The family of this 69-nucleotide RNA from Agrilus planipennis is "mir-1000 microRNA precursor family".
Rfam links the family to the GO terms miRNA-mediated post-transcriptional gene silencing, RISC complex and negative regulation of glutamate secretion, neurotransmission.
Rfam 15.1 lists 152 matches to the family in 150 species.
RNA sequence: CAUCAUGAUAUUGUCCUGUCACAGCAGUACGUUUUCGUAAUACUGCUGGUUCGGGACAUGACCAUGACG
Numbered sequence: 001c002a003u004c005a006u007g008a009u010a011u012u013g014u015c016c017u018g019u020c021a022c023a024g025c026a027g028u029a030c031g032u033u034u035u036c037g038u039a040a041u042a043c044u045g046c047u048g049g050u051u052c053g054g055g056a057c058a059u060g061a062c063c064a065u066g067a068c069g
Base pairs, nucleotide, nucleotide: 003067004066005065006064012058013057014056015055016054017053018052022048023047024046025045026044027043028042029041